Overview:
mir-160 microRNA precursor family: an 87-nucleotide RNA from Triticum urartu. Pairs were carried over by alignment from the consensus structure, which was predicted with PFOLD. Gene Ontology terms of the family: miRNA-mediated post-transcriptional gene silencing and RISC complex.

RNA sequence: GCGCACCACAUCCACGGUGCGCCAUUAGUAAAAAAAAAUUAAUUUUUUUUUCAAAACUACUAAUGGCGCACCAUGGGUGUGGUGCGC
Numbered sequence: 001g002c003g004c005a006c007c008a009c010a011u012c013c014a015c016g017g018u019g020c021g022c023c024a025u026u027a028g029u030a031a032a033a034a035a036a037a038a039u040u041a042a043u044u045u046u047u048u049u050u051u052c053a054a055a056a057c058u059a060c061u062a063a064u065g066g067c068g069c070a071c072c073a074u075g076g077g078u079g080u081g082g083u084g085c086g087c
Stems, first nucleotide, its partner, number of pairs: 001087006008080007016072009027061003
For this family Rfam cites "Prediction of plant microRNA targets" (Rhoades et al., Cell, 2002).
NCBI's taxonomy places the organism under Eukaryota, Streptophytina, Spermatophyta, commelinids, Triticum.